[Rfam]
RNA: t44 RNA
RNA sequence: CCGCUUAAGCGGCUAAUUCACACAUGCACCGACACAUAUAACGGGGUGCCUGAUAGCAGAUUGUUAUACAGGUUGUUAUAUGAGGGUGUAUGGAGGUUUAAC
Dot-bracket structure: ......................((((((((....(((((((((....(((((................))))))))))))))..))))))))..........